[Rfam]
RNA sequence: CCAGAUGGUCGGGCGAUCGCUGUGUUCCUUACGGAACAGGGAGGAAAGUCCGGGCUCCACAGGAAAACGGUGCCGGCUAACGGCCGGCGGGGGCGACCCUAGGGACAGUGCCACAGAAACAAUACCGUCCGCCUGUUUUCUCCUUAUAAGGGAGAUAAUGCGGAUAAGGGUGAAACGGUGCGGUAAGAGCGCACCGCGCGGCUGGUAACAGCGGCGGUCAUGGUAAACCCCACCGGGAGCAAGACCGAAUAGGAAUGACAAGCCAGAAAUGGCUGAGGGGUCCUGCCCUGUCAUUCGGGUUGGUUGCGUGAGGUGUGUCGCAAGACACAUCCCAGAGGAAUGAUCGCCCCACCUCAUUACAUGUGAGGUAGGACAGAACCCGGCUUACAGACCAUCUGGCCCU
Dot-bracket structure: ((((((((((((((((((.((.((((((....)))))).))....[[[.[[[[[((((....[..[.((((((((((.....)))))(((((....)))).)((...(((((............((((((((.(.......................).))))))..)).......((((((.......))))))((((.((((....)))).)))..)..)))..)))))))))))))...((((......((((((.................((((.]..].)))).)))))).....))))......((((((((....))))))))..........)))))))..............................]]]]]]]].).))))))))))....

The record is a 403-nucleotide RNA from Bombella intestini, which matches "Bacterial RNase P class A" in Rfam. The source organism's lineage runs through Bacteria, Pseudomonadati, Pseudomonadota, Acetobacteraceae and Bombella. Pairs were carried over by alignment from the consensus structure, which is taken from published work. Rfam classes the family as a ribozyme.